[Rfam]
RNA sequence: GCCGGGAAAACACGGCCGCAACUCCGACGUGUCGGCGCUGCCGACUUGGGAUUGCGGAUGUGU
Numbered sequence: 001g002c003c004g005g006g007a008a009a010a011c012a013c014g015g016c017c018g019c020a021a022c023u024c025c026g027a028c029g030u031g032u033c034g035g036c037g038c039u040g041c042c043g044a045c046u047u048g049g050g051a052u053u054g055c056g057g058a059u060g061u062g063u
Stems, first nucleotide, its partner, number of pairs: 010063004016057006024050002031045006
S15-Halobacteria ribosomal protein leader: a 63-nucleotide RNA. Rfam's curators put it in the seed alignment.